[Rfam]
The record is an 84-nucleotide RNA sequence from Shewanella fodinae, which matches "RpsF leader" in Rfam. The match comes from Rfam's covariance-model search (41 bits). Conserved and widely distributed to many bacterial species RNA structure. It precedes operon containing rpsF, which encodes ribosomal protein S6. The motif also precedes operon containing rpsR, which encodes ribosomal protein S18. On this family, see Fu et al., RNA 2014: "Bacterial RNA motif in the 5' UTR of rpsF interacts with an S6:S18 complex". Taxonomically the source falls in Shewanella (Bacteria, Pseudomonadota, Gammaproteobacteria, Alteromonadales). The base pairs follow the family's consensus structure. Rfam classes the family as a cis-regulatory leader.
RNA sequence: UCAGUCACUUUACUUUCGUUCCUUGCCUCGUAGGGGUUUGACUGAGCCACAAAGAGGCUAAAUAACCGUAAGGAGCAAUAAAUG
Numbered sequence: 001u002c003a004g005u006c007a008c009u010u011u012a013c014u015u016u017c018g019u020u021c022c023u024u025g026c027c028u029c030g031u032a033g034g035g036g037u038u039u040g041a042c043u044g045a046g047c048c049a050c051a052a053a054g055a056g057g058c059u060a061a062a063u064a065a066c067c068g069u070a071a072g073g074a075g076c077a078a079u080a081a082a083u084g
Base pairs, nucleotide, nucleotide: 018076019075020074021073022072023071024070025058026057027056028055029054033048034047